[Rfam]
RNA sequence: ACUAAGGCUUUCUAGUAUUCCCCCCUUAUGUUGAUGCGGACCUUUCAGGUGCGCAUUUUUUUAU
Numbered sequence: 001a002c003u004a005a006g007g008c009u010u011u012c013u014a015g016u017a018u019u020c021c022c023c024c025c026u027u028a029u030g031u032u033g034a035u036g037c038g039g040a041c042c043u044u045u046c047a048g049g050u051g052c053g054c055a056u057u058u059u060u061u062u063a064u
Stems, first nucleotide, its partner, number of pairs: 003028005033058001034056005040050004
Rfam assigns this 64-nucleotide sequence from Bacillus licheniformis to the family "Bacillus sRNA ncr1241".